Source information
The record is a 110-nucleotide RNA sequence from Virgibacillus indicus, which matches "SAM riboswitch aptamer (S box leader)" in Rfam. Pairs were carried over by alignment from the consensus structure, which is taken from published work. The organism belongs to Virgibacillus, within Bacteria. Its family is annotated with regulation of gene expression in the Gene Ontology.
[Rfam]
RNA sequence: UUCUUAUCAAGAGAGACUGAGGGACUGGCCCAAAGAUGUCUCGGCAACAGGUUCAUUAUUGAAUACUGUGCCAAUUCCAGCAGAUGCUUUUAGCAUUUGACAGAUGAGAA
Numbered sequence: 001u002u003c004u005u006a007u008c009a010a011g012a013g014a015g016a017c018u019g020a021g022g023g024a025c026u027g028g029c030c031c032a033a034a035g036a037u038g039u040c041u042c043g044g045c046a047a048c049a050g051g052u053u054c055a056u057u058a059u060u061g062a063a064u065a066c067u068g069u070g071c072c073a074a075u076u077c078c079a080g081c082a083g084a085u086g087c088u089u090u091u092a093g094c095a096u097u098u099g100a101c102a103g104a105u106g107a108g109a110a
Base pairs, nucleotide, nucleotide: 001110002109003108004107005106006105007104008103013042014041015040016039017038021031022030023029025080026079027078028077043072044071045070046069048068049067050064052062053061076102081099082098083097084096085095086094